[Rfam]
RNA sequence: CAUAUAGGCACGCUUAAUUUCCGGUUGCAAUGUCCGGAAAGCGGGGGGAACCCAGUCAAGUGGGGCGAAUCGCUUCGUAUGAAGUGUAGGGUACCAUCUUACCCGAGUCCGUCAGCUAACCUCGUCAGCAGUAGAUGGGUCUAUAU
Numbered sequence: 001c002a003u004a005u006a007g008g009c010a011c012g013c014u015u016a017a018u019u020u021c022c023g024g025u026u027g028c029a030a031u032g033u034c035c036g037g038a039a040a041g042c043g044g045g046g047g048g049a050a051c052c053c054a055g056u057c058a059a060g061u062g063g064g065g066c067g068a069a070u071c072g073c074u075u076c077g078u079a080u081g082a083a084g085u086g087u088a089g090g091g092u093a094c095c096a097u098c099u100u101a102c103c104c105g106a107g108u109c110c111g112u113c114a115g116c117u118a119a120c121c122u123c124g125u126c127a128g129c130a131g132u133a134g135a136u137g138g139g140u141c142u143a144u145a146u
Stems, first nucleotide, its partner, number of pairs: 012129003018040007041125006053062002063110003071086004089104004
Dot-bracket structure: ...........(((...(((((((.........)))))))((((((......((......))(((.....((((........))))..((((........))))...))).........)))))).))).................
RNA: c-di-AMP riboswitch aptamer (ydaO/yuaA leader)
Organism: Cohnella rhizosphaerae